[Rfam]
RNA: Ribosomal S15 leader
Organism: Providencia heimbachae
RNA sequence: GUGAGAUGCUAAAUUAGAGAUUGGCUCUCAUCACAUACAUUUAUAUCUAUUUUUUGGAGUUUAUUAUGUCUCUAAGUAAUGAAGUGAAAGCUAAAAUUGUUGCUGAGUUUGGUCGCGGCGAA
Numbered sequence: 001g002u003g004a005g006a007u008g009c010u011a012a013a014u015u016a017g018a019g020a021u022u023g024g025c026u027c028u029c030a031u032c033a034c035a036u037a038c039a040u041u042u043a044u045a046u047c048u049a050u051u052u053u054u055u056g057g058a059g060u061u062u063a064u065u066a067u068g069u070c071u072c073u074a075a076g077u078a079a080u081g082a083a084g085u086g087a088a089a090g091c092u093a094a095a096a097u098u099g100u101u102g103c104u105g106a107g108u109u110u111g112g113u114c115g116c117g118g119c120g121a122a
Stems, first nucleotide, its partner, number of pairs: 008025005053076007